This 55-nucleotide RNA sequence from Actinomadura madurae belongs to the Rfam family "L17-Actino-Proteobacteria ribosomal protein leader". On this family, see Eckert and Weinberg, BMC Microbiol 2020: "Discovery of 20 novel ribosomal leader candidates in bacteria and archaea". The source organism's lineage runs through Bacteria, Bacillati, Thermomonosporaceae, Actinomadura and Actinomadura madurae. Pairs were carried over by alignment from the consensus structure, which is taken from published work.
RNA sequence: GUUCCCCGGCCGUCCUGGAACCAGCUGACACCGGUACCUGAUACGGCCGGUGCAG
Numbered sequence: 001g002u003u004c005c006c007c008g009g010c011c012g013u014c015c016u017g018g019a020a021c022c023a024g025c026u027g028a029c030a031c032c033g034g035u036a037c038c039u040g041a042u043a044c045g046g047c048c049g050g051u052g053c054a055g
Stems, first nucleotide, its partner, number of pairs: 001021005008015002025055003029052007